[Rfam]
RNA sequence: CUGGGAUAGGCGGGGUGAUAGCGGUGCCCUGUACCCGAAAACCGCUUUAUGCGGGGCUGAAUUCCCUCCCGAGCAUAUUGACCGGAUGCCGUAAAUCAUUCAAGUCGGCCGCCGCGCAACAGACGGUUACGAACCUCGUCAGGUCCGGAAGGAAGCAGCGAUAAGUAAUGCCGGUCUGUGUCGCGGAACGUUCCCGGCUUUGCAAUGAUUUGCCCUUUCCGUUCCCAUGCAGAGGAGGGUUCCCGG
Numbered sequence: 001c002u003g004g005g006a007u008a009g010g011c012g013g014g015g016u017g018a019u020a021g022c023g024g025u026g027c028c029c030u031g032u033a034c035c036c037g038a039a040a041a042c043c044g045c046u047u048u049a050u051g052c053g054g055g056g057c058u059g060a061a062u063u064c065c066c067u068c069c070c071g072a073g074c075a076u077a078u079u080g081a082c083c084g085g086a087u088g089c090c091g092u093a094a095a096u097c098a099u100u101c102a103a104g105u106c107g108g109c110c111g112c113c114g115c116g117c118a119a120c121a122g123a124c125g126g127u128u129a130c131g132a133a134c135c136u137c138g139u140c141a142g143g144u145c146c147g148g149a150a151g152g153a154a155g156c157a158g159c160g161a162u163a164a165g166u167a168a169u170g171c172c173g174g175u176c177u178g179u180g181u182c183g184c185g186g187a188a189c190g191u192u193c194c195c196g197g198c199u200u201u202g203c204a205a206u207g208a209u210u211u212g213c214c215c216u217u218u219c220c221g222u223u224c225c226c227a228u229g230c231a232g233a234g235g236a237g238g239g240u241u242c243c244c245g246g
Stems, first nucleotide, its partner, number of pairs: 001246006009058003012030006019023001034055004039050001064239006073230004080224002083221004088216001092212002095209006102200007112186005117180002120178005125171001126169005136161004144153003
RNA: Bacterial large signal recognition particle RNA
Organism: Desulfosalsimonas propionicica